[Rfam]
RNA sequence: CGGACGGGCAGGACUUAGCUGGCUCUGUGAACAGGUCUUGUUGGUUUAUGUUCACAGUGGCUAAGUUCCACCUGAG
Numbered sequence: 001c002g003g004a005c006g007g008g009c010a011g012g013a014c015u016u017a018g019c020u021g022g023c024u025c026u027g028u029g030a031a032c033a034g035g036u037c038u039u040g041u042u043g044g045u046u047u048a049u050g051u052u053c054a055c056a057g058u059g060g061c062u063a064a065g066u067u068c069c070a071c072c073u074g075a076g
Base pairs, nucleotide, nucleotide: 011068012067013066014065015064016063017062018061019060020059027055028054029053030052031051032050033049